[Rfam]
RNA sequence: AUACCUUUCUCGGCCUUUUGGCUAAGAUCAAGUGUUGUAUCUGUUCUUUUCAUGUUACUUAUCUAAUACCUGAGCCAUUGGCUAACAUGAUGUUAAUUUUUUUAGGGGAGAAGCUUACCACAGUAGUUUGCUACUGGAACUUUCAGGUGUCGCCCAUGCGUUGCACUAUAGCUCGGGCCAGGCACAUCCCAC
Numbered sequence: 001a002u003a004c005c006u007u008u009c010u011c012g013g014c015c016u017u018u019u020g021g022c023u024a025a026g027a028u029c030a031a032g033u034g035u036u037g038u039a040u041c042u043g044u045u046c047u048u049u050u051c052a053u054g055u056u057a058c059u060u061a062u063c064u065a066a067u068a069c070c071u072g073a074g075c076c077a078u079u080g081g082c083u084a085a086c087a088u089g090a091u092g093u094u095a096a097u098u099u100u101u102u103u104a105g106g107g108g109a110g111a112a113g114c115u116u117a118c119c120a121c122a123g124u125a126g127u128u129u130g131c132u133a134c135u136g137g138a139a140c141u142u143u144c145a146g147g148u149g150u151c152g153c154c155c156a157u158g159c160g161u162u163g164c165a166c167u168a169u170a171g172c173u174c175g176g177g178c179c180a181g182g183c184a185c186a187u188c189c190c191a192c
Base pairs, nucleotide, nucleotide: 008027009026010025012023013022014021015020048068050066052064071085073083074082075081076080110144111143112142113141116139118137123134124133125132126131147185148184149183150182151181154176155175158172159171
This 192-nucleotide RNA from Hibiscus trionum belongs to the Rfam family "U2 spliceosomal RNA". The family has 208 seed sequences and 71,512 matches in Rfam 15.1. About the family: U2 is a small nuclear RNA (snRNA) component of the spliceosome (involved in pre-mRNA splicing). Complementary binding between U2 snRNA (in an area lying towards the 5' end but 3' to hairpin I) and the branchpoint sequence (BPS) of the intron results the bulging out of an unpaired adenosine, on the BPS, which initiates a nucleophilic attack at the intronic 5' splice site, thus starting the first of two transesterification reactions that mediate splicing. Its Rfam clan is "U2 clan". A search with the family's covariance model found it, with a score of 100 bits. Rfam classes the family as a spliceosomal small nuclear RNA. For this family Rfam cites "The uRNA database" (Zwieb, Nucleic Acids Res, 1997). Lineage of the source: Eukaryota > Euphyllophyta > Gunneridae > rosids > Hibiscus.